Notes:
Rfam assigns this 128-nucleotide RNA from Myotis lucifugus to the family "mir-9193 microRNA precursor family". Taxonomically the source falls in Myotis (Eukaryota, Opisthokonta, Metazoa, Tetrapoda).
RNA sequence: UAUGCACUGGUGAGGUCCCUCGGCCUGGCCUGUGCCUUUUCGCAAUUCAGGACCCCUUGGGGGAUGUUGGAGAGCUGGUUUUCGGCCCAAUCCCUGCAGGCCAGGCUGAGGGACCCCACCAGUGCACG
Numbered sequence: 001u002a003u004g005c006a007c008u009g010g011u012g013a014g015g016u017c018c019c020u021c022g023g024c025c026u027g028g029c030c031u032g033u034g035c036c037u038u039u040u041c042g043c044a045a046u047u048c049a050g051g052a053c054c055c056c057u058u059g060g061g062g063g064a065u066g067u068u069g070g071a072g073a074g075c076u077g078g079u080u081u082u083c084g085g086c087c088c089a090a091u092c093c094c095u096g097c098a099g100g101c102c103a104g105g106c107u108g109a110g111g112g113a114c115c116c117c118a119c120c121a122g123u124g125c126a127c128g
Stems, first nucleotide, its partner, number of pairs: 003126002006123001008121003012117001014115012027102008
The match comes from Rfam's covariance-model search (55 bits). The family has 2 seed sequences and 6,008 matches in Rfam 15.1.